[Rfam]
RNA sequence: GCUUACGGUUAGUUUUGCAGAUUUGCAUUUCAGCGUAUAUGUGAAUAUAUGGCUGUGCAAAUCCUUGCGAAACUGAUUGUGAUU
Numbered sequence: 001g002c003u004u005a006c007g008g009u010u011a012g013u014u015u016u017g018c019a020g021a022u023u024u025g026c027a028u029u030u031c032a033g034c035g036u037a038u039a040u041g042u043g044a045a046u047a048u049a050u051g052g053c054u055g056u057g058c059a060a061a062u063c064c065u066u067g068c069g070a071a072a073c074u075g076a077u078u079g080u081g082a083u084u
Base pairs, nucleotide, nucleotide: 003082004081005080006079007078008077009076010075011074012073013072014071015070016069017068018067019066020064022061023060024059025058026057027056028055032054033053034052

The record is an 84-nucleotide RNA sequence from Mesocricetus auratus, which matches "mir-19 microRNA precursor family" in Rfam. The family's consensus secondary structure was predicted with RNAalifold. A search with the family's covariance model found it, with a score of 66 bits.